[Rfam]
RNA sequence: UGUCAACGCAAGGAGGCAGAUAUGGGACGCACUCAUUCUCUCAAUGUUCUGGUGGUUGGUGCAGCGUUCGUUUUCGUAGCCUCGAUGCUUUUCAUCUGAGGCCAGCCGCGCCCUUCAACCGGUCAUUAAAGCAUCCAUUGACCGUUUGAUCUUCAAUGCACUUCAAAUUGAAAAGGCCCAUGAUCCGAUAGGACCAUGGGCCUC
Dot-bracket structure: ..............((((.....((((.........))))....)))).............................................................................................................................(((((((((.((......)).))))))))).
Annotation
The record is a 204-nucleotide RNA sequence from Endobacterium cereale, which matches "Rhizobiales sRNA Atu_C9" in Rfam. The organism belongs to Endobacterium, within Bacteria.